RNA sequence: CCUUAAAUUUCUCAAGCAGCAAAUAAUGAUUCGCAUCUUUAUUAGAGCAUGCAAACCAUGAUGUGCUGCUAGAGUAAUUUAAGG
Numbered sequence: 001c002c003u004u005a006a007a008u009u010u011c012u013c014a015a016g017c018a019g020c021a022a023a024u025a026a027u028g029a030u031u032c033g034c035a036u037c038u039u040u041a042u043u044a045g046a047g048c049a050u051g052c053a054a055a056c057c058a059u060g061a062u063g064u065g066c067u068g069c070u071a072g073a074g075u076a077a078u079u080u081a082a083g084g
Base pairs, nucleotide, nucleotide: 001084002083003082004081005080006079013072015070016069017068018067019066020065021064023062024061026059027058028057030055031054033052034051035050036049
Rfam assigns this 84-nucleotide sequence from Cepphus grylle to the family "mir-15 microRNA precursor family". Pairs were carried over by alignment from the consensus structure, which was predicted with RNAalifold. On this family, see Calin et al., Proc Natl Acad Sci U S A 2002: "Frequent deletions and down-regulation of micro- RNA genes miR15 and miR16 at 13q14 in chronic lymphocytic leukemia". Its family is annotated with miRNA-mediated post-transcriptional gene silencing and RISC complex in the Gene Ontology. This family represents the related mir-15a and mir-15b sequences. In humans miR-15a and miR-16 are clustered within 0.5 kb at 13q14. This region has been shown to be deleted in more than half of B cell chronic lymphocytic leukaemias (CLL).